[Rfam]
RNA sequence: UGUUGGUCCGACGAUGAAGCUAAUUGUGGACUAGAGUUUCUGAUCUGGUUUUAUCCAGGAGUUGAAGACAAACCCUUGGCUGUCUGAGUUCCUCA
Numbered sequence: 001u002g003u004u005g006g007u008c009c010g011a012c013g014a015u016g017a018a019g020c021u022a023a024u025u026g027u028g029g030a031c032u033a034g035a036g037u038u039u040c041u042g043a044u045c046u047g048g049u050u051u052u053a054u055c056c057a058g059g060a061g062u063u064g065a066a067g068a069c070a071a072a073c074c075c076u077u078g079g080c081u082g083u084c085u086g087a088g089u090u091c092c093u094c095a
Stems, first nucleotide, its partner, number of pairs: 001095002005091002008088001037067004044060002046057003
Dot-bracket structure: ((..((.(............................((((...(((((......))).))...))))....................).))..))
RNA: Small nucleolar RNA Z157/R69/R10